RNA sequence: GGACAUAAACGCGCCCGCAAUAAGCGGCUCGGACCCGGGGGCGGUACCCGGCGGCUCCACCAGACACCCUUCGUUGGGGGGACAGCGGGGCCGAAAUAGGAUCGACGAACGUCUAAAGGGGUAUGCUUUGUCCCGGUGAGGUACCACCGUUAUCGGUCCGAAACGCAUAGUUGCCAACGACAACAAUGCUCCGGUCGCGCUCGCUGCGUAA
Numbered sequence: 001g002g003a004c005a006u007a008a009a010c011g012c013g014c015c016c017g018c019a020a021u022a023a024g025c026g027g028c029u030c031g032g033a034c035c036c037g038g039g040g041g042c043g044g045u046a047c048c049c050g051g052c053g054g055c056u057c058c059a060c061c062a063g064a065c066a067c068c069c070u071u072c073g074u075u076g077g078g079g080g081g082a083c084a085g086c087g088g089g090g091c092c093g094a095a096a097u098a099g100g101a102u103c104g105a106c107g108a109a110c111g112u113c114u115a116a117a118g119g120g121g122u123a124u125g126c127u128u129u130g131u132c133c134c135g136g137u138g139a140g141g142u143a144c145c146a147c148c149g150u151u152a153u154c155g156g157u158c159c160g161a162a163a164c165g166c167a168u169a170g171u172u173g174c175c176a177a178c179g180a181c182a183a184c185a186a187u188g189c190u191c192c193g194g195u196c197g198c199g200c201u202c203g204c205u206g207c208g209u210a211a
Stems, first nucleotide, its partner, number of pairs: 001133005013122004025111002029108003035051005052093007134149004

Source information:
permuted transfer-messenger RNA: a 211-nucleotide RNA from Wenxinia marina. The source organism's lineage runs through Bacteria, Pseudomonadota, Roseobacteraceae, Wenxinia and Wenxinia marina. On this family, see Williams and Bartel, RNA 1996: "Phylogenetic analysis of tmRNA secondary structure". Pairs were carried over by alignment from the consensus structure, which is taken from published work. Rfam's curators write: Bacterial tmRNA, also known as 10Sa RNA or SsrA, is named for its dual tRNA and mRNA-like properties. Its role is to liberate the mRNA from a stalled ribosome. To accomplish this part of the tmRNA is used as a reading frame that ends in a translation stop signal. The broken mRNA is replaced in the ribosome by the tmRNA and translation of the tmRNA leads to addition of a proteolysis tag to the incomplete protein enabling recognition by a protease. Recently a number of permuted tmRNA genes have been found encoded in two parts. tmRNAs have been identified in eubacteria and some chloroplasts but are absent from archaeal and eukaryote nuclear genomes.